Shown here is a 169-nucleotide sequence from Clostridium neonatale, a member of the family "Lysine riboswitch aptamer". Gene Ontology term of the family: lysine biosynthetic process. About the family: Riboswitches are metabolite binding domains within certain messenger RNAs that serve as precision sensors for their corresponding targets. Allosteric rearrangement of mRNA structure is mediated by ligand binding, and this results in modulation of gene expression. This family includes riboswitches that sense lysine in a number of genes involved in lysine metabolism, including lysC.
[Rfam]
RNA sequence: AACAGAUGUAGAGGUGCUAUAACAAAGAGUAAUUAUAUGGAGCUGGCAGGUUAGGAUAUAUAAUAAAAGGUGUUAUAGCCGAAGAGAUGGAUUUUUAUGCAAAGAUCAAUUUCUGGGUAUUCAUAAAAUAUAUGAAUAACUGUCACGAAAGUGUUGAGCUACACAGUUA
Numbered sequence: 001a002a003c004a005g006a007u008g009u010a011g012a013g014g015u016g017c018u019a020u021a022a023c024a025a026a027g028a029g030u031a032a033u034u035a036u037a038u039g040g041a042g043c044u045g046g047c048a049g050g051u052u053a054g055g056a057u058a059u060a061u062a063a064u065a066a067a068a069g070g071u072g073u074u075a076u077a078g079c080c081g082a083a084g085a086g087a088u089g090g091a092u093u094u095u096u097a098u099g100c101a102a103a104g105a106u107c108a109a110u111u112u113c114u115g116g117g118u119a120u121u122c123a124u125a126a127a128a129u130a131u132a133u134g135a136a137u138a139a140c141u142g143u144c145a146c147g148a149a150a151g152u153g154u155u156g157a158g159c160u161a162c163a164c165a166g167u168u169a
Stems, first nucleotide, its partner, number of pairs: 007163005016079009032064008083114006090107005115141002118138008144153003